The family of this 117-nucleotide sequence from Anisodus acutangulus is "U5 spliceosomal RNA". The family's RNA type in Rfam is spliceosomal small nuclear RNA. Pairs were carried over by alignment from the consensus structure, which is taken from published work.
RNA sequence: AGCCACGUAGUGAGCACAAAGCGAACUAUUCUUUCGCCUUUUACUAAAGAAUACCGUGUGCGCGCUACAAUCAGUGGCAUACGCCAAUUUUUGGAGGGGUUCUCUCUUUCGAGUACC
Numbered sequence: 001a002g003c004c005a006c007g008u009a010g011u012g013a014g015c016a017c018a019a020a021g022c023g024a025a026c027u028a029u030u031c032u033u034u035c036g037c038c039u040u041u042u043a044c045u046a047a048a049g050a051a052u053a054c055c056g057u058g059u060g061c062g063c064g065c066u067a068c069a070a071u072c073a074g075u076g077g078c079a080u081a082c083g084c085c086a087a088u089u090u091u092u093g094g095a096g097g098g099g100u101u102c103u104c105u106c107u108u109u110c111g112a113g114u115a116c117c
Stems, first nucleotide, its partner, number of pairs: 003077004008067005014061005027053008098117003102113001